[Rfam]
RNA: Purine riboswitch aptamer
RNA sequence: AAUUUCGUAUUUCAUUUUCUUCGUAUAAACUUGGAAAUAAGGUCCAAAAGUCUCUACCAAACUACCGUAAAUAGUUUGACUACGAUGAAUGACGAAAAAACG
Numbered sequence: 001a002a003u004u005u006c007g008u009a010u011u012u013c014a015u016u017u018u019c020u021u022c023g024u025a026u027a028a029a030c031u032u033g034g035a036a037a038u039a040a041g042g043u044c045c046a047a048a049a050g051u052c053u054c055u056a057c058c059a060a061a062c063u064a065c066c067g068u069a070a071a072u073a074g075u076u077u078g079a080c081u082a083c084g085a086u087g088a089a090u091g092a093c094g095a096a097a098a099a100a101c102g
Stems, first nucleotide, its partner, number of pairs: 018088002021085005031047005058078007